[Rfam]
RNA sequence: CCCUGCAUCCAAAAGUGAUUGCGGGCUGCCCGUGCCCUGACCAUUGAUAGUGCAGGGAGAUGAAUGUGGAAAGAAGUUUUCCCUGUGUUUGGAGGCUCCACCCAUCCAUUCUAAACCCUAGAGCUUUCCCACA
Numbered sequence: 001c002c003c004u005g006c007a008u009c010c011a012a013a014a015g016u017g018a019u020u021g022c023g024g025g026c027u028g029c030c031c032g033u034g035c036c037c038u039g040a041c042c043a044u045u046g047a048u049a050g051u052g053c054a055g056g057g058a059g060a061u062g063a064a065u066g067u068g069g070a071a072a073g074a075a076g077u078u079u080u081c082c083c084u085g086u087g088u089u090u091g092g093a094g095g096c097u098c099c100a101c102c103c104a105u106c107c108a109u110u111c112u113a114a115a116c117c118c119u120a121g122a123g124c125u126u127u128c129c130c131a132c133a
Base pairs, nucleotide, nucleotide: 001057002056003055004054005053006052007051008050014045015044016043017042019040020039021038023037024036025035026034066130068129069128070127071126072125073124087116088115089114090113091112092110093109095107